The family of this 159-nucleotide sequence from Peromyscus maniculatus is "U1 spliceosomal RNA". For this family Rfam cites "Mechanism of 5' splice site transfer for human spliceosome activation" (Charenton et al., Science, 2019). Lineage of the source: Eukaryota > Euteleostomi > Boreoeutheria > Cricetidae > Peromyscus maniculatus.

RNA sequence: AUACUUACCUGGCAGGGGAAGAUACCAUGAUCAAGAAGGCAUUUUCCUAGGGAAAACUCAUUGUUGGACUUGGAAUGUGUUGACAUCUUUGGCUUCUUCAAAUGUGAGAACCUCGACUGCAUAAUUAGUGGUGGUGAGAGUUGUGUUUGUGUUCUCUAU
Numbered sequence: 001a002u003a004c005u006u007a008c009c010u011g012g013c014a015g016g017g018g019a020a021g022a023u024a025c026c027a028u029g030a031u032c033a034a035g036a037a038g039g040c041a042u043u044u045u046c047c048u049a050g051g052g053a054a055a056a057c058u059c060a061u062u063g064u065u066g067g068a069c070u071u072g073g074a075a076u077g078u079g080u081u082g083a084c085a086u087c088u089u090u091g092g093c094u095u096c097u098u099c100a101a102a103u104g105u106g107a108g109a110a111c112c113u114c115g116a117c118u119g120c121a122u123a124a125u126u127a128g129u130g131g132u133g134g135u136g137a138g139a140g141u142u143g144u145g146u147u148u149g150u151g152u153u154c155u156c157u158a159u
Stems, first nucleotide, its partner, number of pairs: 012120004016048006023041001028039001049088003055081003059077001061074002090115003094110002097107002137157004143152003

The family's RNA type in Rfam is spliceosomal small nuclear RNA. U1 is a small nuclear RNA (snRNA) component of the spliceosome (involved in pre-mRNA splicing).